[Rfam]
RNA sequence: CGGGUGGUAUUUUAAUUAAACCGCACCUUAUAUAUUUGAAAAUUUAAAGAUUAAAAGAAAUAGCUCAUAUCAAUUUUGAAUGAGACUAAUUA
Numbered sequence: 001c002g003g004g005u006g007g008u009a010u011u012u013u014a015a016u017u018a019a020a021c022c023g024c025a026c027c028u029u030a031u032a033u034a035u036u037u038g039a040a041a042a043u044u045u046a047a048a049g050a051u052u053a054a055a056a057g058a059a060a061u062a063g064c065u066c067a068u069a070u071c072a073a074u075u076u077u078g079a080a081u082g083a084g085a086c087u088a089a090u091u092a
Stems, first nucleotide, its partner, number of pairs: 002027002004024005010019002061088003064084005070079003
A member of the RNA family "pan motif" from Clostridium sp. CAG:265, 92 nucleotides long. The base pairs follow the family's consensus structure, which is taken from published work. It scores 56 bits against the family's covariance model. The organism belongs to Clostridium, within Bacteria.